Overview
This 100-nucleotide sequence from Cuscuta australis belongs to the Rfam family "Small nucleolar RNA Z279/snoR105/snoR108". Rfam 15.1 lists 906 matches to the family in 223 species. For this family Rfam cites "Experimental RNomics: identification of 140 candidates for small non-messenger RNAs in the plant Arabidopsis thaliana" (Marker et al., Curr Biol, 2002). Its Rfam clan is "snoU13 clan". About the family: This family includes the plant snoRNAs known as Z279, snoR105 and snoR108.
RNA sequence: GGGAUGUGAUGAGUGGUCAAUACUCACAUUUGAUGUGAGAUGGGUGUCCGCUCCGCCAGCACGACAAUAAGGGCACUCUCAUCUUUUGCCAUCUGAUCCC
Number, nucleotide and partner (000 for none) at each position: 001g100002g099003g098004a097005u000006g000007u000008g000009a000010u000011g000012a000013g000014u091015g090016g089017u088018c000019a000020a000021u000022a000023c039024u038025c037026a036027c035028a000029u000030u000031u000032g000033a000034u000035g027036u026037g025038a024039g023040a000041u000042g078043g077044g076045u075046g074047u073048c072049c000050g000051c000052u000053c000054c000055g000056c000057c000058a000059g000060c000061a000062c000063g000064a000065c000066a000067a000068u000069a000070a000071g000072g048073g047074c046075a045076c044077u043078c042079u000080c000081a000082u000083c000084u000085u000086u000087u000088g017089c016090c015091a014092u000093c000094u000095g000096a000097u004098c003099c002100c001
Lineage of the source: Eukaryota > Pentapetalae > lamiids > Cuscuteae > Cuscuta sect. Cleistogrammica.